[Rfam]
RNA: bip internal ribosome entry site (IRES)
Organism: Microcebus murinus
RNA sequence: CGGCGGCCAAGACAGCACGGAGUAGACUGACUAGGGCGUUUCGGGAGGGUAAGGGGUAAACGCCGCGGCCUGCUUUUCAGAACUCUCCCCCGCCUUGUUCGUGGCUCCGGGCCCCUGCCGCCCUCACACCGGUAACCUCGCAACGCUCCCGUGCUGCGGCCUGUGGCAGGAUUGCCUGCGACGUCCUCCCUGCCUGGUGACCCUCUGGCCGGCAAGAUGAAGCUCUCCCUGGUGGCUGCAGUGCUGCUG
Numbered sequence: 001c002g003g004c005g006g007c008c009a010a011g012a013c014a015g016c017a018c019g020g021a022g023u024a025g026a027c028u029g030a031c032u033a034g035g036g037c038g039u040u041u042c043g044g045g046a047g048g049g050u051a052a053g054g055g056g057u058a059a060a061c062g063c064c065g066c067g068g069c070c071u072g073c074u075u076u077u078c079a080g081a082a083c084u085c086u087c088c089c090c091c092g093c094c095u096u097g098u099u100c101g102u103g104g105c106u107c108c109g110g111g112c113c114c115c116u117g118c119c120g121c122c123c124u125c126a127c128a129c130c131g132g133u134a135a136c137c138u139c140g141c142a143a144c145g146c147u148c149c150c151g152u153g154c155u156g157c158g159g160c161c162u163g164u165g166g167c168a169g170g171a172u173u174g175c176c177u178g179c180g181a182c183g184u185c186c187u188c189c190c191u192g193c194c195u196g197g198u199g200a201c202c203c204u205c206u207g208g209c210c211g212g213c214a215a216g217a218u219g220a221a222g223c224u225c226u227c228c229c230u231g232g233u234g235g236c237u238g239c240a241g242u243g244c245u246g247c248u249g
Base pairs, nucleotide, nucleotide: 004238005237006236007235008234009233015154016153017152018151019150020149031110032109034107035106036105037104064103065102066101067100068099157169159167160166161165